[Rfam]
RNA sequence: CCCACAUGCUAAGUAGUAGUGCCGCAGGUAACGACUAUGAUGCUUACCUGAGCACCGCUACUUCAUAUGUUGG
Numbered sequence: 001c002c003c004a005c006a007u008g009c010u011a012a013g014u015a016g017u018a019g020u021g022c023c024g025c026a027g028g029u030a031a032c033g034a035c036u037a038u039g040a041u042g043c044u045u046a047c048c049u050g051a052g053c054a055c056c057g058c059u060a061c062u063u064c065a066u067a068u069g070u071u072g073g
Stems, first nucleotide, its partner, number of pairs: 001073002004070004011063007019055001025050006
Source information: A member of the RNA family "mir-252 microRNA precursor family" from Hyalella azteca, 73 nucleotides long. Its family is annotated with miRNA-mediated post-transcriptional gene silencing and RISC complex in the Gene Ontology. It scores 45 bits against the family's covariance model. Clan: mir-252 microRNA precursor family. The literature on the family includes a 2009 paper in BMC Genomics by Li et al., "Direct sequencing and expression analysis of a large number of miRNAs in Aedes aegypti and a multi-species survey of novel mosquito miRNAs". Pairs were carried over by alignment from the consensus structure, which was predicted with RNAalifold. NCBI's taxonomy places the organism under Eukaryota, Arthropoda, Communostraca, Talitroidea, Hyalella.